[Rfam]
RNA sequence: CUUCUGCUGUGACGAAUUAUGAAUAAAAUUCACAUGUCAGACUUAAGAGAUUUUUUUAAAAAAAAAAAUCUAUGAGAAGAAAAUUCAUGCUUUCCGAGCAGAGU
Numbered sequence: 001c002u003u004c005u006g007c008u009g010u011g012a013c014g015a016a017u018u019a020u021g022a023a024u025a026a027a028a029u030u031c032a033c034a035u036g037u038c039a040g041a042c043u044u045a046a047g048a049g050a051u052u053u054u055u056u057u058a059a060a061a062a063a064a065a066a067a068a069u070c071u072a073u074g075a076g077a078a079g080a081a082a083a084u085u086c087a088u089g090c091u092u093u094c095c096g097a098g099c100a101g102a103g104u
Stems, first nucleotide, its partner, number of pairs: 002103006049070009
RNA: Small nucleolar RNA R64/Z200 family
Organism: Hibiscus syriacus